[Rfam]
RNA sequence: AUACUUACCUGGACAGGUUCAAUGGGCGAUCAACAAGGCCCAUGGCCUAGGUUGGUGACCUCCAUUGCACUUUGGAGGGGUUCCUGCCUAAGGUCGGCCCAACUGGCCGAGCCUACGUCAUAAUUUGUGGCAGCGGGGGCCUGCGUUCGCGCCGCCCUUA
Numbered sequence: 001a002u003a004c005u006u007a008c009c010u011g012g013a014c015a016g017g018u019u020c021a022a023u024g025g026g027c028g029a030u031c032a033a034c035a036a037g038g039c040c041c042a043u044g045g046c047c048u049a050g051g052u053u054g055g056u057g058a059c060c061u062c063c064a065u066u067g068c069a070c071u072u073u074g075g076a077g078g079g080g081u082u083c084c085u086g087c088c089u090a091a092g093g094u095c096g097g098c099c100c101a102a103c104u105g106g107c108c109g110a111g112c113c114u115a116c117g118u119c120a121u122a123a124u125u126u127g128u129g130g131c132a133g134c135g136g137g138g139g140c141c142u143g144c145g146u147u148c149g150c151g152c153c154g155c156c157c158u159u160a
Base pairs, nucleotide, nucleotide: 012119013118014117016048017047019045020044021043023042024041025040026039027038049089050088051087053086055083057081059079060078061077062075063074091114092113093112094110095109096108098106099105135159136158137157138156139155143152144151145150